Notes: The record is a 94-nucleotide sequence from Bacillus sp. 1NLA3E, which matches "c-di-GMP-I riboswitch aptamer" in Rfam. Its family is annotated with cyclic-di-GMP binding in the Gene Ontology.
[Rfam]
RNA sequence: AACAGUAAAAGGCAAAUCUAUUGAAAGAUAGUGACGCAAAGUUACAGGUCUAAAAUUAGAGGAGUUCUCUGAUUAUGACGGCUGGGCUGCCUGA
Numbered sequence: 001a002a003c004a005g006u007a008a009a010a011g012g013c014a015a016a017u018c019u020a021u022u023g024a025a026a027g028a029u030a031g032u033g034a035c036g037c038a039a040a041g042u043u044a045c046a047g048g049u050c051u052a053a054a055a056u057u058a059g060a061g062g063a064g065u066u067c068u069c070u071g072a073u074u075a076u077g078a079c080g081g082c083u084g085g086g087c088u089g090c091c092u093g094a
Stems, first nucleotide, its partner, number of pairs: 012037002018031005040088004045084003048079003055073007